[Rfam]
RNA sequence: UCUUUUCUGGUUGCAGCUUGAGUAAUCAAGCUGAUGGCUGGUGACUUUUUGGUCACCAGCCU
Numbered sequence: 001u002c003u004u005u006u007c008u009g010g011u012u013g014c015a016g017c018u019u020g021a022g023u024a025a026u027c028a029a030g031c032u033g034a035u036g037g038c039u040g041g042u043g044a045c046u047u048u049u050u051g052g053u054c055a056c057c058a059g060c061c062u
Base pairs, nucleotide, nucleotide: 014033015032016031017030018029036061037060038059039058040057041056042055043054044053045052
Shown here is a 62-nucleotide sequence from Atlantibacter hermannii, a member of the family "Pseudomonas sRNA P26". This small RNA (sRNA) was computationally identified in the genome of the opportunistic pathogen Pseudomonas aeruginosa and its expression verified by northern blot analysis. P26 is conserved across many Gammaproteobacteria species and appears to be consistently located between the DNA directed RNA polymerase (beta subunit) and 50S ribosomal protein L7/L12 genes. For this family Rfam cites "Identification of 17 Pseudomonas aeruginosa sRNAs and prediction of sRNA-encoding genes in 10 diverse pathogens using the bioinformatic tool sRNAPredict2" (Livny et al., Nucleic Acids Res, 2006). Pairs were carried over by alignment from the consensus structure, which was predicted with RNAalifold. The match comes from Rfam's covariance-model search (67 bits).